RNA sequence: CCUGUUAUACGGCUAAUAGUAGCCUAGGGAUAGUGCGAUGCUGGUAACGGCAUGGUGCGGAGCUUCCUGACAAUGUACCUCUGCGCAAGCAGUACUUUAACCCGCGAGGGUGGGUAUAGCACACGAACAAUACGGAGCUGG
Numbered sequence: 001c002c003u004g005u006u007a008u009a010c011g012g013c014u015a016a017u018a019g020u021a022g023c024c025u026a027g028g029g030a031u032a033g034u035g036c037g038a039u040g041c042u043g044g045u046a047a048c049g050g051c052a053u054g055g056u057g058c059g060g061a062g063c064u065u066c067c068u069g070a071c072a073a074u075g076u077a078c079c080u081c082u083g084c085g086c087a088a089g090c091a092g093u094a095c096u097u098u099a100a101c102c103c104g105c106g107a108g109g110g111u112g113g114g115u116a117u118a119g120c121a122c123a124c125g126a127a128c129a130a131u132a133c134g135g136a137g138c139u140g141g
Stems, first nucleotide, its partner, number of pairs: 002019006027068004033058004038053006082091003092117004102109002124134002

A member of the RNA family "Group II catalytic intron D1-D4-7", 141 nucleotides long. Rfam's curators write: Group II introns are found in rRNA, tRNA and mRNA of organelles in fungi, plants and protists, and also in mRNA in bacteria. Pairs were carried over by alignment from the consensus structure. Rfam's curators put it in the seed alignment.